[Rfam]
RNA sequence: CAAAAGAAAUGAUGAAAUCAGAAAAUCUUAGGACACCUUCUGACACUGUACAAUGUUGUGCUGUGUAUGAGAAAGAUUUUUGUUUCUGAUUGUUUUG
Number, nucleotide and partner (000 for none) at each position: 001c097002a096003a095004a094005a093006g000007a091008a000009a000010u000011g000012a000013u000014g000015a000016a000017a000018u000019c000020a000021g000022a000023a000024a000025a000026u000027c000028u000029u000030a000031g000032g000033a000034c000035a000036c000037c000038u000039u000040c000041u000042g000043a000044c000045a049046c000047u000048g000049u045050a000051c000052a000053a000054u000055g000056u000057u000058g000059u000060g000061c000062u000063g000064u000065g000066u000067a000068u000069g000070a000071g000072a000073a000074a000075g000076a000077u000078u000079u000080u000081u000082g000083u000084u000085u000086c000087u000088g000089a000090u000091u007092g000093u005094u004095u003096u002097g001
Shown here is a 97-nucleotide RNA from Salix koriyanagi, a member of the family "Small nucleolar RNA snoR31/Z110/Z27". The family's consensus secondary structure was predicted with PFOLD. From the family's description: This family contains several related snoRNAs including R31, Z27 and Z110. The family's RNA type in Rfam is C/D-box small nucleolar RNA. Gene Ontology terms of the family: RNA processing and nucleolus.